[Rfam]
This 108-nucleotide RNA sequence from Rhynchospora breviuscula belongs to the Rfam family "U5 spliceosomal RNA". Rfam's curators write: U5 RNA is a component of both types of known spliceosome. The base pairs follow the family's consensus structure, which is taken from published work. The family's RNA type in Rfam is spliceosomal small nuclear RNA. It scores 84 bits against the family's covariance model.

RNA sequence: AGCUGCGUGGUGAGCACAGAGCGAACUAUUCUUUCGCCUUUUACUAAAGAAUACCGUGUGCUCGCCACUUUUAAGCAGCAUACGCCCAUUUUUGGAGGGGUCGUUCCU
Numbered sequence: 001a002g003c004u005g006c007g008u009g010g011u012g013a014g015c016a017c018a019g020a021g022c023g024a025a026c027u028a029u030u031c032u033u034u035c036g037c038c039u040u041u042u043a044c045u046a047a048a049g050a051a052u053a054c055c056g057u058g059u060g061c062u063c064g065c066c067a068c069u070u071u072u073a074a075g076c077a078g079c080a081u082a083c084g085c086c087c088a089u090u091u092u093u094g095g096a097g098g099g100g101u102c103g104u105u106c107c108u
Stems, first nucleotide, its partner, number of pairs: 003078004008067011027053008